RNA sequence: GAUAGGUUGCUGUCGCUAGCGUGAUUGGACACUGACGUACAGUCAACUAGCCUGGUUCAGAACGGGCUAAGGCAUACAAGCGGGACGGUCCGAGCCACGAGGGGGGAGGCUCGGACCGUCCGUU
Numbered sequence: 001g002a003u004a005g006g007u008u009g010c011u012g013u014c015g016c017u018a019g020c021g022u023g024a025u026u027g028g029a030c031a032c033u034g035a036c037g038u039a040c041a042g043u044c045a046a047c048u049a050g051c052c053u054g055g056u057u058c059a060g061a062a063c064g065g066g067c068u069a070a071g072g073c074a075u076a077c078a079a080g081c082g083g084g085a086c087g088g089u090c091c092g093a094g095c096c097a098c099g100a101g102g103g104g105g106g107a108g109g110c111u112c113g114g115a116c117c118g119u120c121c122g123u124u
Stems, first nucleotide, its partner, number of pairs: 001014005015051004021032003033045004084120013098105001
Streptomyces RNA 3920: a 124-nucleotide sequence from Streptomyces rubrolavendulae.
For this family Rfam cites "Deep sequencing-based identification of small non-coding RNAs in Streptomyces coelicolor" (Vockenhuber et al., RNA Biol, 2011).
Lineage of the source: Bacteria > Actinomycetota > Actinomycetes > Streptomycetaceae > Streptomyces.
Rfam describes the family as follows. Identified by deep sequencing of transcriptome at the end of exponential growth phase.